[Rfam]
RNA sequence: AUAAUGAUACACCCGUAUGACACGGUUCAGCCCACAGGAAUGGGAAUGGUUGAGAUACCAGCGG
Dot-bracket structure: ...........(((((.....))))(((...............)))(((........))))...

Shown here is a 64-nucleotide RNA sequence from [Ruminococcus] lactaris, a member of the family "pemK RNA". It is annotated as a cis-regulatory element. Lineage of the source: Bacteria > Bacillati > Lachnospirales > Mediterraneibacter > [Ruminococcus] lactaris.